[Rfam]
A member of the RNA family "Plastid-psbN 5UTR RNA" from Ensete ventricosum, 61 nucleotides long.
The family's RNA type in Rfam is cis-regulatory element.
RNA sequence: ACCCACCCCCAUUAGUGGUGUAGUCCCCCAGCCCGGAGCUACUUUACCAUAUUCCGAAUUC
Numbered sequence: 001a002c003c004c005a006c007c008c009c010c011a012u013u014a015g016u017g018g019u020g021u022a023g024u025c026c027c028c029c030a031g032c033c034c035g036g037a038g039c040u041a042c043u044u045u046a047c048c049a050u051a052u053u054c055c056g057a058a059u060u061c
Base pairs, nucleotide, nucleotide: 017045018044020042021041022040023039024038026036027035
The organism belongs to Ensete, within Eukaryota. A reference for the family is Richter et al. (2023), "Retrograde signaling in plants: A critical review focusing on the GUN pathway and beyond", Plant Commun. Rfam 15.1 lists 2,345 matches to the family in 397 species. Rfam's curators write: Plastid psbN is a non-coding RNA (ncRNA) recognised in plastids.